[Rfam]
Shown here is a 146-nucleotide RNA sequence from Rodentolepis nana, a member of the family "U12 minor spliceosomal RNA". The family has 62 seed sequences and 2,106 matches in Rfam 15.1. Rfam links the family to the GO terms U12 snRNP, mRNA branch site recognition and pre-mRNA branch point binding.
RNA sequence: ACGCCUUAAACUAAUGAGUAAGGAAAAUAACGCUCCGGUGGAAUAACCGGUGCCUUGGUUAUAUCCAACUCAAUAUUUGCAGGGCAAAGGCCUUCUCAGCGUGUCCUUCUACUUUCGAGGACGUGCUUGAUGAUUGUGGCCUACCC
Numbered sequence: 001a002c003g004c005c006u007u008a009a010a011c012u013a014a015u016g017a018g019u020a021a022g023g024a025a026a027a028u029a030a031c032g033c034u035c036c037g038g039u040g041g042a043a044u045a046a047c048c049g050g051u052g053c054c055u056u057g058g059u060u061a062u063a064u065c066c067a068a069c070u071c072a073a074u075a076u077u078u079g080c081a082g083g084g085c086a087a088a089g090g091c092c093u094u095c096u097c098a099g100c101g102u103g104u105c106c107u108u109c110u111a112c113u114u115u116c117g118a119g120g121a122c123g124u125g126c127u128u129g130a131u132g133a134u135u136g137u138g139g140c141c142u143a144c145c146c
Stems, first nucleotide, its partner, number of pairs: 004023005032053002035050005055067001057065002082146003086142001089141004094136001096130002098127005104121005